[Rfam]
Nucleotides: 372
Stems, first nucleotide, its partner, number of pairs: 001368007019341006028332001032329007043316005048069005056082004125147001127145002130143003150186006157177006165199006203233002207229005215249006251289005258284002264280002269308004276302002345361005
Number, partner (000 for none) and nucleotide at each position: 001368g002367g003366g004365g005364g006363u007362g008000a009000a010000c011000g012000g013000u014000u015000u016000c017000g018000a019341c020340u021339u022338u023337g024336g025000a026000c027000g028332u029000u030000g031000a032329g033328u034327c035326a036325a037324g038323a039000g040000a041000a042000g043316c044315g045314u046313g047312c048069c049068g050067g051066u052065g053000c054000a055000g056082g057081c058080g059079a060000g061000a062000g063000a064000c065052c066051a067050c068049c069048g070000u071000a072000a073000g074000c075000g076000u077000c078000a079059u080058c081057g082056c083000a084000c085000u086000a087000a088000a089000a090000u091000a092000a093000g094000c095000g096000c097000c098000a099000a100000g101000a102000c103000g104000a105000a106000u107000a108000g109000u110000c111000g112000c113000g114000c115000u116000g117000a118000c119000u120000a121000c122000g123000c124000c125147c126000u127145c128144g129000c130143c131142g132141c133000c134000u135000g136000a137000g138000c139000g140000a141132g142131c143130g144128c145127g146000u147125g148000u149000c150186u151185g152184u153183c154182g155181g156000c157177c158176c159175g160174g161173g162172g163000g164000c165199g166198c167197c168196u169195c170194c171000g172162c173161c174160c175159c176158g177157g178000u179000a180000g181155c182154c183153g184152g185151c186150a187000u188000c189000a190000g191000c192000u193000a194170g195169g196168a197167g198166g199165c200000u201000c202000a203233c204232c205000u206000a207229c208228c209227g210226g211225a212000c213000c214000c215249g216248g217247c218246c219245g220244c221000g222000g223000g224000g225211u226210c227209c228208g229207g230000a231000u232204g233203g234000g235000a236000a237000a238000a239000c240000c241000a242000c243000a244220g245219c246218g247217g248216c249215u250000g251289g252288g253287c254286c255285c256000g257000c258284c259283a260000c261000a262000u263000c264280g265279g266000c267000u268000u269308g270307u271306u272305c273000g274000c275000g276302u277301g278000a279265c280264c281000g282000a283259u284258g285255g286254g287253g288252c289251c290000g291000a292000g293000u294000a295000g296000a297000g298000g299000c300000a301277u302276a303000g304000c305272g306271a307270a308269c309000u310000g311000c312047g313046c314045a315044c316043g317000g318000a319000g320000a321000a322000g323038u324037c325036u326035u327034g328033g329032u330000g331000a332028g333000g334000c335000g336024c337023c338022a339021g340020a341019g342000g343000a344000c345361c346360c347359g348358g349357g350000u351000u352000c353000a354000a355000u356000u357349c358348c359347c360346g361345g362007c363006a364005c365004c366003u367002c368001c369000a370000c371000c372000c

This 372-nucleotide RNA sequence from Amycolatopsis acidicola belongs to the Rfam family "transfer-messenger RNA". Rfam describes the family as follows. Bacterial tmRNA, also known as 10Sa RNA or SsrA, is named for its dual tRNA and mRNA-like properties. Its role is to liberate the mRNA from a stalled ribosome. To accomplish this part of the tmRNA is used as a reading frame that ends in a translation stop signal. The broken mRNA is replaced in the ribosome by the tmRNA and translation of the tmRNA leads to addition of a proteolysis tag to the incomplete protein enabling recognition by a protease. The match comes from Rfam's covariance-model search (134 bits). Rfam links the family to the GO term RNA catabolic process. It is annotated as a non-coding RNA gene. Lineage of the source: Bacteria > Actinomycetes > Pseudonocardiales > Pseudonocardiaceae > Amycolatopsis.